[Rfam]
RNA sequence: CCGGCUCCGGUUCACGUCCUGCGCACCAGCGCGGGCGACCCGGCGGCU
Numbered sequence: 001c002c003g004g005c006u007c008c009g010g011u012u013c014a015c016g017u018c019c020u021g022c023g024c025a026c027c028a029g030c031g032c033g034g035g036c037g038a039c040c041c042g043g044c045g046g047c048u
Stems, first nucleotide, its partner, number of pairs: 003048003007043004015037005
RNA: L31-Actinobacteria ribosomal protein leader